Shown here is a 98-nucleotide sequence from Brevibacillus sp. SYP-B805, a member of the family "SAM riboswitch aptamer (S box leader)". Pairs were carried over by alignment from the consensus structure, which is taken from published work.
[Rfam]
RNA sequence: CUCUUAUCCAGAGCAGGCGGAGGGACUGGCCCGAUGAAGCCCGGCAACCGACCCGUUCGGUGCUAACCAGCAGAACAGUUUGUUCUGGCCGAUAAGAG
Numbered sequence: 001c002u003c004u005u006a007u008c009c010a011g012a013g014c015a016g017g018c019g020g021a022g023g024g025a026c027u028g029g030c031c032c033g034a035u036g037a038a039g040c041c042c043g044g045c046a047a048c049c050g051a052c053c054c055g056u057u058c059g060g061u062g063c064u065a066a067c068c069a070g071c072a073g074a075a076c077a078g079u080u081u082g083u084u085c086u087g088g089c090c091g092a093u094a095a096g097a098g
Base pairs, nucleotide, nucleotide: 001098002097003096004095005094006093007092008091013042016041017040018039022032023031024030026070027069028068029067043064044063045062046061048060049059051056071087072086073085074084075083076082